[Rfam]
Rfam assigns this 85-nucleotide RNA from Cnephaeus nilssonii to the family "mir-9215 microRNA precursor family". The organism belongs to Cnephaeus, within Eukaryota. The base pairs follow the family's consensus structure, which was predicted with RNAalifold.
RNA sequence: UGAAGUGCUCUGACACUAGGACUUGUGGCUGCUGUGGGGUGGUAGGAACCAGGCUUGCCCAGGGUCAGUGUCCCCAGUGUUCUGU
Numbered sequence: 001u002g003a004a005g006u007g008c009u010c011u012g013a014c015a016c017u018a019g020g021a022c023u024u025g026u027g028g029c030u031g032c033u034g035u036g037g038g039g040u041g042g043u044a045g046g047a048a049c050c051a052g053g054c055u056u057g058c059c060c061a062g063g064g065u066c067a068g069u070g071u072c073c074c075c076a077g078u079g080u081u082c083u084g085u
Base pairs, nucleotide, nucleotide: 002082003081004080006079007078008077009076012072013071014070015069016068017067019066022063024061025060027059028058029057031054032053033052037050038049040047